[Rfam]
RNA sequence: GGGACAACGAGACCCAACUUGGAUGGAGGCGGGGGACCCACUGGUCCACCGAAAAGAAGGACCGGGAACCGAUUCGGUUCCUUGGGGUGAAGCCGUCGCCGUUUCGACGACGCCGGCCGGGCGACCUCUCCAGCCCGAACCCGACAGCUGACCUCGCGGGCGCUUCAAGAGAGGACCA
Numbered sequence: 001g002g003g004a005c006a007a008c009g010a011g012a013c014c015c016a017a018c019u020u021g022g023a024u025g026g027a028g029g030c031g032g033g034g035g036a037c038c039c040a041c042u043g044g045u046c047c048a049c050c051g052a053a054a055a056g057a058a059g060g061a062c063c064g065g066g067a068a069c070c071g072a073u074u075c076g077g078u079u080c081c082u083u084g085g086g087g088u089g090a091a092g093c094c095g096u097c098g099c100c101g102u103u104u105c106g107a108c109g110a111c112g113c114c115g116g117c118c119g120g121g122c123g124a125c126c127u128c129u130c131c132a133g134c135c136c137g138a139a140c141c142c143g144a145c146a147g148c149u150g151a152c153c154u155c156g157c158g159g160g161c162g163c164u165u166c167a168a169g170a171g172a173g174g175a176c177c178a
Base pairs, nucleotide, nucleotide: 013160014159018028019027020026029157030156031155032154033153034152039084040083085142086141087140093116094115095114119136120135121134122133
This 178-nucleotide sequence from Mycolicibacterium chubuense belongs to the Rfam family "c-di-AMP riboswitch aptamer (ydaO/yuaA leader)". Rfam links the family to the GO terms cyclic-di-AMP binding and regulation of gene expression. The base pairs follow the family's consensus structure.